Notes
The record is an 83-nucleotide RNA from Pelodictyon phaeoclathratiforme, which matches "tRNA" in Rfam. Rfam links the family to the GO term triplet codon-amino acid adaptor activity. Rfam classes the family as a transfer RNA. The family's consensus secondary structure is taken from published work. NCBI's taxonomy places the organism under Bacteria, Chlorobiia, Chlorobiales, Chlorobiaceae, Pelodictyon phaeoclathratiforme.

RNA sequence: GGAGGAUUUGCCUAAUUGGUAAGGCAGCAGUCUUGAAAACUGCCGGGUUCACGCCCAUGGGGGUUCGAGUCCCUCAUCCUCCG
Numbered sequence: 001g002g003a004g005g006a007u008u009u010g011c012c013u014a015a016u017u018g019g020u021a022a023g024g025c026a027g028c029a030g031u032c033u034u035g036a037a038a039a040c041u042g043c044c045g046g047g048u049u050c051a052c053g054c055c056c057a058u059g060g061g062g063g064u065u066c067g068a069g070u071c072c073c074u075c076a077u078c079c080u081c082c083g
Stems, first nucleotide, its partner, number of pairs: 001082007010025004027043005059075005